Record summary
A member of the RNA family "Plastid-ycf2 5UTR RNA" from Oryza meyeriana, 75 nucleotides long. By type it is a cis-regulatory element. The base pairs follow the family's consensus structure, which was predicted with LocARNA. Plastid ycf2 is a non-coding RNA (ncRNA) recognised in plastids. It was found in the prime untranslated region (5UTR) of ycf2 genes, it presents a tRNA-like motif which suggests it can be involved in mRNA maturation, particularly involved in defining the precise 5' end of the transcript. A search with the family's covariance model found it, with a score of 75 bits.
RNA sequence: GCCCACCCAGCAAGAAUUGAACCUGCCAAUUUACCAAUUAUGAGUUGGGCGCUUUAACCAUUCAGCCAUGAAUGC
Numbered sequence: 001g002c003c004c005a006c007c008c009a010g011c012a013a014g015a016a017u018u019g020a021a022c023c024u025g026c027c028a029a030u031u032u033a034c035c036a037a038u039u040a041u042g043a044g045u046u047g048g049g050c051g052c053u054u055u056a057a058c059c060a061u062u063c064a065g066c067c068a069u070g071a072a073u074g075c
Stems, first nucleotide, its partner, number of pairs: 004074002008070001010026003014022001040069003044066006051059001